RNA sequence: GAGCCCGGAGGUCAACGUCCGACAGCGCGUGGCGCUCUCGGGCGUUAAAGUG
Numbered sequence: 001g002a003g004c005c006c007g008g009a010g011g012u013c014a015a016c017g018u019c020c021g022a023c024a025g026c027g028c029g030u031g032g033c034g035c036u037c038u039c040g041g042g043c044g045u046u047a048a049a050g051u052g
Stems, first nucleotide, its partner, number of pairs: 016044007025035004
ffh sRNA: a 52-nucleotide sequence from Rhizobiales bacterium GAS113. Taxonomically the source falls in Hyphomicrobiales (Bacteria, Pseudomonadati, Pseudomonadota, Alphaproteobacteria). The family's RNA type in Rfam is small RNA. It scores 55 bits against the family's covariance model.